[Rfam]
RNA: MIR2629 microRNA precursor family
RNA sequence: UGCCGAGGUUUUUCUCGGUAGUUAACUGCAGUUGGUUUUGAACUUCCUCGACAGUUAACUACAGAGAGGUAU
Numbered sequence: 001u002g003c004c005g006a007g008g009u010u011u012u013u014c015u016c017g018g019u020a021g022u023u024a025a026c027u028g029c030a031g032u033u034g035g036u037u038u039u040g041a042a043c044u045u046c047c048u049c050g051a052c053a054g055u056u057a058a059c060u061a062c063a064g065a066g067a068g069g070u071a072u
Stems, first nucleotide, its partner, number of pairs: 012068002015065002018062011